[Rfam]
RNA sequence: AAUAAAAAGGGCGAUGGAGUUCGCCCGAAUUUCGCUGCUGCGGUAAUGACUCCUGUCCAAAC
Numbered sequence: 001a002a003u004a005a006a007a008a009g010g011g012c013g014a015u016g017g018a019g020u021u022c023g024c025c026c027g028a029a030u031u032u033c034g035c036u037g038c039u040g041c042g043g044u045a046a047u048g049a050c051u052c053c054u055g056u057c058c059a060a061a062c
Stems, first nucleotide, its partner, number of pairs: 010025004016053006032043004
Shown here is a 62-nucleotide RNA sequence from Cloacibacillus porcorum, a member of the family "Fluoride riboswitch aptamer (crcB RNA motif)".
The family's consensus secondary structure is taken from published work.